Rfam assigns this 105-nucleotide sequence from Nitrosovibrio tenuis to the family "Guanidine-I riboswitch aptamer". Rfam describes the family as follows. This family represents a conserved RNA structure found upstream of the ykkC and yxkD genes in Bacillus subtilis and related genes in other bacteria. The function of this family is unclear although it has been suggested that it may function to switch on efflux pumps and detoxification systems in response to harmful environmental molecules. Gene Ontology term of the family: regulation of gene expression.

[Rfam]
Nucleotides: 105
Stems, first nucleotide, its partner, number of pairs: 008057005015048002020045002022042001023039006059078008080100001082103001086098003
Number, partner (000 for none) and nucleotide at each position: 001000c002000u003000a004000a005000g006000g007000a008057g009056a010055a011054a012053c013000u014000a015048g016047g017000g018000u019000u020045c021044c022042g023039g024038c025037c026036u027035c028034u029000g030000c031000g032000a033000u034028a035027g036026a037025g038024g039023u040000g041000u042022c043000u044021g045020g046000u047016c048015c049000g050000a051000g052000a053012g054011u055010u056009u057008c058000c059078g060077g061076c062075u063074u064073c065072g066071u067000c068000a069000u070000g071066a072065c073064g074063a075062g076061g077060c078059u079000c080100c081000a082103c083000g084000g085000a086098g087097g088096g089000a090000u091000a092000a093000a094000a095000g096088c097087c098086c099000g100080g101000g102000a103082g104000a105000u
Pairs were carried over by alignment from the consensus structure. Taxonomically the source falls in Nitrosovibrio (Bacteria, Pseudomonadota, Nitrosomonadales, Nitrosomonadaceae).